[Rfam]
RNA sequence: GCUCCGGUAGCUCAGCUGGAUAGAGCAUCGGCCUUCUAAGCCGAGGGUCGUGGGUUCGAGUCCCGCCCGGGGCG
Numbered sequence: 001g002c003u004c005c006g007g008u009a010g011c012u013c014a015g016c017u018g019g020a021u022a023g024a025g026c027a028u029c030g031g032c033c034u035u036c037u038a039a040g041c042c043g044a045g046g047g048u049c050g051u052g053g054g055u056u057c058g059a060g061u062c063c064c065g066c067c068c069g070g071g072g073c074g
Base pairs, nucleotide, nucleotide: 001073002072003071004070005069006068007067010026011025012024013023028044029043030042031041032040050066051065052064053063054062
The family of this 74-nucleotide RNA sequence from Aggregicoccus sp. 17bor-14 is "tRNA".
It is annotated as a transfer RNA.
The family's consensus secondary structure is taken from published work.